[Rfam]
RNA sequence: AGUACCUUUAAUUCAGUCCGUGAGACUGGCAAGGUAGCGUGAAUGACGGAAGAGGUUUCUUCGGCAAAUAGAAGAAAACCUUUCUAUCCGCAUGCAAACUCCUUGCGAUUGCCGCAAGGAGUUUUUUUUAG
Numbered sequence: 001a002g003u004a005c006c007u008u009u010a011a012u013u014c015a016g017u018c019c020g021u022g023a024g025a026c027u028g029g030c031a032a033g034g035u036a037g038c039g040u041g042a043a044u045g046a047c048g049g050a051a052g053a054g055g056u057u058u059c060u061u062c063g064g065c066a067a068a069u070a071g072a073a074g075a076a077a078a079c080c081u082u083u084c085u086a087u088c089c090g091c092a093u094g095c096a097a098a099c100u101c102c103u104u105g106c107g108a109u110u111g112c113c114g115c116a117a118g119g120a121g122u123u124u125u126u127u128u129u130a131g
Stems, first nucleotide, its partner, number of pairs: 003036006013029006049084004054079001056077007094126001096124012

Shown here is a 131-nucleotide RNA sequence from a Paenibacillaceae bacterium, a member of the family "PyrR binding site".
The base pairs follow the family's consensus structure, which is taken from published work.
On this family, see Bonner et al., Nucleic Acids Res 2001: "Molecular recognition of pyr mRNA by the Bacillus subtilis attenuation regulatory protein PyrR".
NCBI's taxonomy places the organism under Bacteria, Bacillati, Bacilli, Caryophanales, Paenibacillaceae.